[Rfam]
RNA sequence: UCGAGUGGCCGAGGGAGCUCAUGUUAUGGGCUGAGAGUGGAACUAGUAAGUUUCUUACCUCUAAUACCUGAUCAGGAUAAUACCUGCGGAGGGAGGUCGUGUGUAAUUGUA
Numbered sequence: 001u002c003g004a005g006u007g008g009c010c011g012a013g014g015g016a017g018c019u020c021a022u023g024u025u026a027u028g029g030g031c032u033g034a035g036a037g038u039g040g041a042a043c044u045a046g047u048a049a050g051u052u053u054c055u056u057a058c059c060u061c062u063a064a065u066a067c068c069u070g071a072u073c074a075g076g077a078u079a080a081u082a083c084c085u086g087c088g089g090a091g092g093g094a095g096g097u098c099g100u101g102u103g104u105a106a107u108u109g110u111a
Base pairs, nucleotide, nucleotide: 006099007098008097009096010095011061012060013059014058016055017031018030019029020028021027039054040053041052042051043050044049067092068091069090073086074085075084076083
RNA: TPP riboswitch aptamer (THI element)